[Rfam]
RNA sequence: GGCCGCCUGAGGGGAAGGUGCCCUCAGUACGAGAGGAACGGGGCGCCGCGGCCUCUAGUCUACCGGUUGUCCGGCAGGGCAGUGCCGGGCAGCCACGCCGCUUGGGGUAACCGCUGAAGGCAUCUAAGCGGGAAACCCGCCCCUAAAAUAGGCGGCCGCCGCUCCUGACCGGGGUUACCCGGUUGGGGGUGGUUAGGGCUCCCGUAGAAGACGGGGUUGAUGGGGUGGUGGUGUAUCCCCCGAGGGUUUUCCCGAGGGGGGAGCCUGCCACUCCCAAUCGCCCGAUGG
Numbered sequence: 001g002g003c004c005g006c007c008u009g010a011g012g013g014g015a016a017g018g019u020g021c022c023c024u025c026a027g028u029a030c031g032a033g034a035g036g037a038a039c040g041g042g043g044c045g046c047c048g049c050g051g052c053c054u055c056u057a058g059u060c061u062a063c064c065g066g067u068u069g070u071c072c073g074g075c076a077g078g079g080c081a082g083u084g085c086c087g088g089g090c091a092g093c094c095a096c097g098c099c100g101c102u103u104g105g106g107g108u109a110a111c112c113g114c115u116g117a118a119g120g121c122a123u124c125u126a127a128g129c130g131g132g133a134a135a136c137c138c139g140c141c142c143c144u145a146a147a148a149u150a151g152g153c154g155g156c157c158g159c160c161g162c163u164c165c166u167g168a169c170c171g172g173g174g175u176u177a178c179c180c181g182g183u184u185g186g187g188g189g190u191g192g193u194u195a196g197g198g199c200u201c202c203c204g205u206a207g208a209a210g211a212c213g214g215g216g217u218u219g220a221u222g223g224g225g226u227g228g229u230g231g232u233g234u235a236u237c238c239c240c241c242g243a244g245g246g247u248u249u250u251c252c253c254g255a256g257g258g259g260g261g262a263g264c265c266u267g268c269c270a271c272u273c274c275c276a277a278u279c280g281c282c283c284g285a286u287g288g
Stems, first nucleotide, its partner, number of pairs: 001157008011143004017047008048101005056095001058093001063088005068081005104138003111131005196283004200216005221276003224272005230265002234261001237260005244253001
Rfam assigns this 288-nucleotide part of an RNA from Caldivirga maquilingensis to the family "Archaeal large subunit ribosomal RNA". Rfam links the family to the GO terms ribosome and structural constituent of ribosome.